Record summary: The family of this 68-nucleotide RNA from Ictidomys tridecemlineatus is "XIST 3' intron conserved motif". By type it is a long non-coding RNA. Rfam's curators put it in the seed alignment.
[Rfam]
RNA sequence: UUGGCCUUUUCCAUUUUUAAAUCACUCACAGAGGGUGGGACAGGAGGAAGAGUGAAGGAAAAGGUCAA
Numbered sequence: 001u002u003g004g005c006c007u008u009u010u011c012c013a014u015u016u017u018u019a020a021a022u023c024a025c026u027c028a029c030a031g032a033g034g035g036u037g038g039g040a041c042a043g044g045a046g047g048a049a050g051a052g053u054g055a056a057g058g059a060a061a062a063g064g065u066c067a068a
Base pairs, nucleotide, nucleotide: 001068002067003066004065005064006063007062008061009060010059011058012057022055023054024053025052026051027050
Dot-bracket structure: ((((((((((((.........((((((......................)))))).))))))))))))